[Rfam]
RNA sequence: UGUAAAUAAUAGCUUAAUCCUGUAAAUAUAUGGGAACGGAGGACCCGACUUUUGGGGUGAGUCCGGUUUUUAACGCCGGUAGGGUUUUAACCUUUCGGCCCGAACCCGUCAGCUAACUUCGUAGGCUUUAAAGAAAGGGGAG
Numbered sequence: 001u002g003u004a005a006a007u008a009a010u011a012g013c014u015u016a017a018u019c020c021u022g023u024a025a026a027u028a029u030a031u032g033g034g035a036a037c038g039g040a041g042g043a044c045c046c047g048a049c050u051u052u053u054g055g056g057g058u059g060a061g062u063c064c065g066g067u068u069u070u071u072a073a074c075g076c077c078g079g080u081a082g083g084g085u086u087u088u089a090a091c092c093u094u095u096c097g098g099c100c101c102g103a104a105c106c107c108g109u110c111a112g113c114u115a116a117c118u119u120c121g122u123a124g125g126c127u128u129u130a131a132a133g134a135a136a137g138g139g140g141a142g
Stems, first nucleotide, its partner, number of pairs: 011127004018035006036122006046054002055107003063079004082101004
RNA: c-di-AMP riboswitch aptamer (ydaO/yuaA leader)